[Rfam]
RNA sequence: GGUCACGAGUACCAGCGUUCAGCCCCGGCUUGCUGGUCGGCAACCCUCCUCCGCGGUGGGGUGCUCCGGGUGACGACCGGGCCGAUGUCCAAAUUCCGGACACGGCAAGCGCGGACU
Numbered sequence: 001g002g003u004c005a006c007g008a009g010u011a012c013c014a015g016c017g018u019u020c021a022g023c024c025c026c027g028g029c030u031u032g033c034u035g036g037u038c039g040g041c042a043a044c045c046c047u048c049c050u051c052c053g054c055g056g057u058g059g060g061g062u063g064c065u066c067c068g069g070g071u072g073a074c075g076a077c078c079g080g081g082c083c084g085a086u087g088u089c090c091a092a093a094u095u096c097c098g099g100a101c102a103c104g105g106c107a108a109g110c111g112c113g114g115a116c117u
Stems, first nucleotide, its partner, number of pairs: 001078004009038001011037006021030002039065003044061003048056002081106004086102005